[Rfam]
RNA sequence: GUUUAUCAAGGAAUCUAUGACAACACGACCCUUAGGUUCCUAUGAAAGAAACAAAAGUGGGUUACACGCAGGUUCAUAGUGCAUUGACGAUUUAAGUCUAUAUGCCAUGAAAUACAAUAAUGAUAGUUAGUAAUAAUGACAAACCUUGGGUAAGUUCUUCCAUGAAUACUAAAAUUAUGGUGAAACUUAAUGUAUCUGCUAGAACUG
Numbered sequence: 001g002u003u004u005a006u007c008a009a010g011g012a013a014u015c016u017a018u019g020a021c022a023a024c025a026c027g028a029c030c031c032u033u034a035g036g037u038u039c040c041u042a043u044g045a046a047a048g049a050a051a052c053a054a055a056a057g058u059g060g061g062u063u064a065c066a067c068g069c070a071g072g073u074u075c076a077u078a079g080u081g082c083a084u085u086g087a088c089g090a091u092u093u094a095a096g097u098c099u100a101u102a103u104g105c106c107a108u109g110a111a112a113u114a115c116a117a118u119a120a121u122g123a124u125a126g127u128u129a130g131u132a133a134u135a136a137u138g139a140c141a142a143a144c145c146u147u148g149g150g151u152a153a154g155u156u157c158u159u160c161c162a163u164g165a166a167u168a169c170u171a172a173a174a175u176u177a178u179g180g181u182g183a184a185a186c187u188u189a190a191u192g193u194a195u196c197u198g199c200u201a202g203a204a205c206u207g
Base pairs, nucleotide, nucleotide: 001052002051003050004049006045007044008043009041010040011039012038013037014036015035016034017033068199069198070197071196072195073194075192076191077190086186117178118177119176120175121174124171125170126169127168133163134162